[Rfam]
RNA: Y RNA
RNA sequence: GGCUGGUCUGAGUGCAGUGGUGUUUACAACUAAUUGAUCACAACCAGUUACAGAUUCUUCCUUCUCCCACUGCUUUACUUAAGUAGCUUUAA
Dot-bracket structure: (((((.(..((..(.(((((.(.............((.....................)).....))))))....)..)).).)))))....